[Rfam]
RNA sequence: GAUGCCUCCGAUCUGACACAACAUCCUGCAGCGAUGUUGUGCGACCUGCAGUGUCAAUCGGAGGAAUC
Numbered sequence: 001g002a003u004g005c006c007u008c009c010g011a012u013c014u015g016a017c018a019c020a021a022c023a024u025c026c027u028g029c030a031g032c033g034a035u036g037u038u039g040u041g042c043g044a045c046c047u048g049c050a051g052u053g054u055c056a057a058u059c060g061g062a063g064g065a066a067u068c
Stems, first nucleotide, its partner, number of pairs: 001068003005064002008061005020038006043055003
Background: bZIP non canonical Hac1/Xbp1 intron: a 68-nucleotide RNA from Coccidioides posadasii. A reference for the family is Iracane et al. (2018), "Identification of an Exceptionally Long Intron in the HAC1 Gene of Candida parapsilosis", mSphere. It is one of the family's seed sequences. The source organism's lineage runs through Eukaryota, Eurotiomycetidae, Onygenales, Coccidioides and Coccidioides posadasii. Pairs were carried over by alignment from the consensus structure, which was predicted with RNAfold. Rfam 15.1 lists 1,325 matches to the family in 1,320 species.